The record is an 84-nucleotide RNA from Alkaliphilus metalliredigens, which matches "skipping-rope RNA" in Rfam. NCBI's taxonomy places the organism under Bacteria, Bacillota, Clostridia, Alkaliphilus, Alkaliphilus metalliredigens. Pairs were carried over by alignment from the consensus structure, which is taken from published work. It is one of the family's seed sequences. Rfam classes the family as a small RNA.
RNA sequence: AUUAUUUGAGGACGGAACAGGCAGCCGUCACGCUACCUAUGGUGGUCUUAAAAGAGAUGUGGGAGGGUCACCCCACCAAGUAAU
Numbered sequence: 001a002u003u004a005u006u007u008g009a010g011g012a013c014g015g016a017a018c019a020g021g022c023a024g025c026c027g028u029c030a031c032g033c034u035a036c037c038u039a040u041g042g043u044g045g046u047c048u049u050a051a052a053a054g055a056g057a058u059g060u061g062g063g064a065g066g067g068u069c070a071c072c073c074c075a076c077c078a079a080g081u082a083a084u
Stems, first nucleotide, its partner, number of pairs: 001084008011029005020069003031054001032043004059076005
Dot-bracket structure: ((((((((..(((((....[[[..))))).(((((....))))..........)....(((((...]]]..)))))))))))))